Shown here is an 85-nucleotide sequence from Parasphingorhabdus halotolerans, a member of the family "ZMP/ZTP riboswitch aptamer (pfl RNA motif)". Rfam 15.1 lists 3,295 matches to the family in 2,545 species. The source organism's lineage runs through Bacteria, Pseudomonadati, Pseudomonadota, Alphaproteobacteria and Parasphingorhabdus.

RNA sequence: CCCGUCUUCCGCAACUGGCGAGAUCAAGGUGGACUACCACCGGGGAGCGGAAAUAUUACUACAGCCGAUCGCCUGGGCAUUUCUU
Numbered sequence: 001c002c003c004g005u006c007u008u009c010c011g012c013a014a015c016u017g018g019c020g021a022g023a024u025c026a027a028g029g030u031g032g033a034c035u036a037c038c039a040c041c042g043g044g045g046a047g048c049g050g051a052a053a054u055a056u057u058a059c060u061a062c063a064g065c066c067g068a069u070c071g072c073c074u075g076g077g078c079a080u081u082u083c084u085u
Stems, first nucleotide, its partner, number of pairs: 007052006015044002017073005029040004064078003